Rfam assigns this 110-nucleotide RNA sequence to the family "THF (Tetrahydrofolate) riboswitch aptamer".
A reference for the family is Trausch and Batey (2014), "A disconnect between high-affinity binding and efficient regulation by antifolates and purines in the tetrahydrofolate riboswitch", Chem Biol.
Rfam's curators write: Tetrahydrofolate (THF) riboswitch was first reported for Ames et al. as an RNA motif in 5' untranslated (5'-UTR)regions of folate transport and biosynthesis genes in Firmicutes genomes.
Rfam 15.1 lists 747 matches to the family in 747 species.
RNA sequence: GCAGAGUAGGUAUAUGUGCGUUAAGUGCCGGAUGAACAGGGAGUAGUCAACCAGACGAAAGGGGCAAGAUAUGAAACUGUUCCUGCGGUACAUGAGCCGCAUCCCGCUGC
Dot-bracket structure: ((((....(((.(((((((((...((.(.((.(((...[[[.[...))).)).)))...(((((((...........)))))))))).)))))).))).].]]]..))))